About this RNA:
The record is a 114-nucleotide sequence from Candidatus Neomicrothrix parvicella, which matches "ALIL pseudoknot" in Rfam. The family's RNA type in Rfam is cis-regulatory element. Lineage of the source: Bacteria > Bacillati > Acidimicrobiia > Candidatus Neomicrothrix > Candidatus Neomicrothrix parvicella.
RNA sequence: GGCUUUCUUCGCGGCGGAGCUCGACCGCCCACAGCGUUGAUCGUCGAGUUCAUCGACGCCAAUAAGGCCGACUACGGGGUCGAGCCGAUCUGCGAUGUUCUGCAGUUCGCCCCG
Number, nucleotide and partner (000 for none) at each position: 001g000002g000003c000004u000005u000006u000007c000008u000009u000010c000011g000012c000013g029014g028015c027016g026017g025018a000019g000020c000021u000022c000023g000024a000025c017026c016027g015028c014029c013030c000031a000032c000033a000034g000035c000036g000037u000038u000039g000040a000041u000042c000043g000044u000045c000046g000047a000048g000049u000050u000051c000052a000053u000054c000055g000056a000057c000058g000059c000060c000061a000062a000063u000064a000065a000066g000067g000068c000069c000070g000071a000072c000073u000074a000075c114076g113077g112078g111079g110080u000081c000082g000083a000084g000085c000086c109087g108088a000089u000090c105091u104092g103093c102094g101095a000096u000097g000098u000099u000100c000101u094102g093103c092104a091105g090106u000107u000108c087109g086110c079111c078112c077113c076114g075